[Rfam]
RNA sequence: CGGGCUCUGCGCGACUGGCGAUAGGCUGCGGCGAGGUGCUGGCGGCUGAGGUGGACGACCACCGGGAAGCGCAGGCUGCUGGCCCCGUGCCGCAGUGCACGCCGUGCGCCUGGGCAGCCCUC
Number, nucleotide and partner (000 for none) at each position: 001c000002g000003g077004g076005c075006u000007c074008u073009g072010c071011g070012c069013g000014a000015c066016u065017g110018g109019c108020g107021a000022u000023a000024g000025g000026c000027u000028g000029c000030g000031g000032c000033g000034a000035g000036g000037u000038g000039c000040u000041g000042g000043c000044g000045g000046c000047u000048g000049a000050g000051g062052u061053g060054g059055a000056c000057g000058a000059c054060c053061a052062c051063c000064g000065g016066g015067a000068a000069g012070c011071g010072c009073a008074g007075g005076c004077u003078g000079c000080u000081g000082g000083c000084c000085c000086c000087g000088u000089g000090c000091c000092g000093c000094a000095g000096u000097g000098c000099a000100c000101g115102c114103c113104g000105u000106g000107c020108g019109c018110c017111u000112g000113g103114g102115c101116a000117g000118c000119c000120c000121u000122c000
The record is a 122-nucleotide RNA sequence from beta proteobacterium AAP65, which matches "ZMP/ZTP riboswitch aptamer (pfl RNA motif)" in Rfam.
The base pairs follow the family's consensus structure, which is taken from published work.